[Rfam]
RNA sequence: AGAAAAGUAGGUGCUGCCCCGCACAGGGGCAAAGCUUGCGGACCGACGUGAAAUCAGGUUCCACGACGGACGUGGAUCACCGAAACCCAAGAAACCCACGCCCCCGCGACGGCACUA
Numbered sequence: 001a002g003a004a005a006a007g008u009a010g011g012u013g014c015u016g017c018c019c020c021g022c023a024c025a026g027g028g029g030c031a032a033a034g035c036u037u038g039c040g041g042a043c044c045g046a047c048g049u050g051a052a053a054u055c056a057g058g059u060u061c062c063a064c065g066a067c068g069g070a071c072g073u074g075g076a077u078c079a080c081c082g083a084a085a086c087c088c089a090a091g092a093a094a095c096c097c098a099c100g101c102c103c104c105c106g107c108g109a110c111g112g113c114a115c116u117a
Base pairs, nucleotide, nucleotide: 012074013073014072015031016030017029018028019027020026058067059066060065099108100107101106
The record is a 117-nucleotide RNA from Trinickia terrae, which matches "Burkholderia sRNA Bp1_Cand684_SIPHT" in Rfam. Pairs were carried over by alignment from the consensus structure, which was predicted with RNAalifold. The organism belongs to Trinickia, within Bacteria. By type it is a small RNA. The match comes from Rfam's covariance-model search (72 bits).